Rfam assigns this 75-nucleotide RNA sequence from Streptomyces olivoverticillatus to the family "ASpks TB sRNA". A search with the family's covariance model found it, with a score of 83 bits. Lineage of the source: Bacteria > Actinomycetota > Actinomycetes > Kitasatosporales > Streptomyces.

RNA sequence: CUUCACCGAACCCAGCCACAGCGGCUGCUGCCCAUCGCGGUCCUGCCCGUACGUGGCAAGCAGCGCCUGCGCCUC
Numbered sequence: 001c002u003u004c005a006c007c008g009a010a011c012c013c014a015g016c017c018a019c020a021g022c023g024g025c026u027g028c029u030g031c032c033c034a035u036c037g038c039g040g041u042c043c044u045g046c047c048c049g050u051a052c053g054u055g056g057c058a059a060g061c062a063g064c065g066c067c068u069g070c071g072c073c074u075c
Stems, first nucleotide, its partner, number of pairs: 014026004031071001033069001038065002043060002047056003